[Rfam]
RNA: Molybdenum/Tungsten riboswitch aptamer (Moco RNA motif)
RNA sequence: AUGGCUCAUUGUUCCCGAGCUCCGUUCACCUAAAACCGGAAUGGUCAUGGUGGCGGGGCCGAUAGGGUGUCGUGGGAAACUGCGGCGCCUCCCGGCGGAAAGGGAACUGAUGCAUCUAGCG
Numbered sequence: 001a002u003g004g005c006u007c008a009u010u011g012u013u014c015c016c017g018a019g020c021u022c023c024g025u026u027c028a029c030c031u032a033a034a035a036c037c038g039g040a041a042u043g044g045u046c047a048u049g050g051u052g053g054c055g056g057g058g059c060c061g062a063u064a065g066g067g068u069g070u071c072g073u074g075g076g077a078a079a080c081u082g083c084g085g086c087g088c089c090u091c092c093c094g095g096c097g098g099a100a101a102g103g104g105a106a107c108u109g110a111u112g113c114a115u116c117u118a119g120c121g
Stems, first nucleotide, its partner, number of pairs: 003115001006112001011107006019059007027052004035045003065090011091098002